Rfam assigns this 93-nucleotide sequence from Microbacterium sp. T32 to the family "TPP riboswitch aptamer (THI element)".
[Rfam]
RNA sequence: GGCAGUGACACGGGGUGCCCCACGGGGGCUGAGAACACACCCGUCGAACCUGAUCUAGUUCGUACUAGCGAAGGGAUGUCGCGAAUGGUCGUU
Numbered sequence: 001g002g003c004a005g006u007g008a009c010a011c012g013g014g015g016u017g018c019c020c021c022a023c024g025g026g027g028g029c030u031g032a033g034a035a036c037a038c039a040c041c042c043g044u045c046g047a048a049c050c051u052g053a054u055c056u057a058g059u060u061c062g063u064a065c066u067a068g069c070g071a072a073g074g075g076a077u078g079u080c081g082c083g084a085a086u087g088g089u090c091g092u093u
Base pairs, nucleotide, nucleotide: 006081007080008079009078010077011043012042013041014040016037017029018028019027020026021025049074050073051072055068056067057066058065

The organism belongs to Microbacterium, within Bacteria.